RNA sequence: GGUGGGUGGCUGGAAGGCAGUGUCUUGUUAGCUGGUUGAUUGUGUGAGUGCCAGCUUACCUGCUGCUGCCCUCCAACUGUCCACA
Numbered sequence: 001g002g003u004g005g006g007u008g009g010c011u012g013g014a015a016g017g018c019a020g021u022g023u024c025u026u027g028u029u030a031g032c033u034g035g036u037u038g039a040u041u042g043u044g045u046g047a048g049u050g051c052c053a054g055c056u057u058a059c060c061u062g063c064u065g066c067u068g069c070c071c072u073c074c075a076a077c078u079g080u081c082c083a084c085a
Stems, first nucleotide, its partner, number of pairs: 002084008011075003016070006022063002027059002030056006041050003